[Rfam]
RNA: Bacterial RNase P class A
RNA sequence: AUGAGUACGAAAGAUGGUCGCGAAUGCCGGAGGGCAUUCGAGGAAAGUCCGAGCUCCGCAGGGCAGGGUGCUGGAUAACGUCCAGCGAGGGCGACCUCAGGGAAAGUGCCACAGAAAUGUAGACCGCCGGGCGCUUUCGCGUUCGGUAAGGAUGGAACGGUGCGGUAAGAGCGCACCAGCAGCCAGGCGACUGGCUGGCUAGGUAAACCCCACCCGGAGCAAGACCGAAUAGGGAAGGAAUGAGGCGGCCCGCUGACCUUCCGGGUUGUGUCGCUUGAGCCGUCAGGCAACUGGCGGCCUAGAUAGAUGACCAUCACCGCGUGAGCGGAACAGAACUCGGCUUAUUGACUACUCAUAGCU
Numbered sequence: 001a002u003g004a005g006u007a008c009g010a011a012a013g014a015u016g017g018u019c020g021c022g023a024a025u026g027c028c029g030g031a032g033g034g035c036a037u038u039c040g041a042g043g044a045a046a047g048u049c050c051g052a053g054c055u056c057c058g059c060a061g062g063g064c065a066g067g068g069u070g071c072u073g074g075a076u077a078a079c080g081u082c083c084a085g086c087g088a089g090g091g092c093g094a095c096c097u098c099a100g101g102g103a104a105a106g107u108g109c110c111a112c113a114g115a116a117a118u119g120u121a122g123a124c125c126g127c128c129g130g131g132c133g134c135u136u137u138c139g140c141g142u143u144c145g146g147u148a149a150g151g152a153u154g155g156a157a158c159g160g161u162g163c164g165g166u167a168a169g170a171g172c173g174c175a176c177c178a179g180c181a182g183c184c185a186g187g188c189g190a191c192u193g194g195c196u197g198g199c200u201a202g203g204u205a206a207a208c209c210c211c212a213c214c215c216g217g218a219g220c221a222a223g224a225c226c227g228a229a230u231a232g233g234g235a236a237g238g239a240a241u242g243a244g245g246c247g248g249c250c251c252g253c254u255g256a257c258c259u260u261c262c263g264g265g266u267u268g269u270g271u272c273g274c275u276u277g278a279g280c281c282g283u284c285a286g287g288c289a290a291c292u293g294g295c296g297g298c299c300u301a302g303a304u305a306g307a308u309g310a311c312c313a314u315c316a317c318c319g320c321g322u323g324a325g326c327g328g329a330a331c332a333g334a335a336c337u338c339g340g341c342u343u344a345u346u347g348a349c350u351a352c353u354c355a356u357a358g359c360u
Stems, first nucleotide, its partner, number of pairs: 001356007009349001012345001013315007021040008045343003049340005054219004061251004066215005071085005086100001087098004101210002106208002108204003124151002126147009159177006179199001180197007223272003226268001233262006244254003279298008
Dot-bracket structure: (((((((.(..((((((((.((((((((....))))))))....[[[.[[[[[((((...[[[[.((((((((((.....)))))(((((....)))).)((...(((((.............(((((((((((....)))))))))..)).......((((((.......)))))).((((((((....))))))).)..)))..)))))))))))))...((((......((((((.....(((.]]]])))..)))))).....).)))......((((((((....))))))))..........)))))))....................]]]]]]]].)...))))))))....